The record is a 78-nucleotide sequence from Bifidobacterium adolescentis, which matches "Fluoride riboswitch aptamer (crcB RNA motif)" in Rfam. The family's consensus secondary structure is taken from published work.
RNA sequence: CUGGACUGCGGUGAUGGGACUCGCCUGAAGCCGUUACAGGCUUCGAACCGCAAACCCGCUGAUGGUUCCUACGACAUA
Numbered sequence: 001c002u003g004g005a006c007u008g009c010g011g012u013g014a015u016g017g018g019a020c021u022c023g024c025c026u027g028a029a030g031c032c033g034u035u036a037c038a039g040g041c042u043u044c045g046a047a048c049c050g051c052a053a054a055c056c057c058g059c060u061g062a063u064g065g066u067u068c069c070u071a072c073g074a075c076a077u078a
Stems, first nucleotide, its partner, number of pairs: 010025004016069006050059002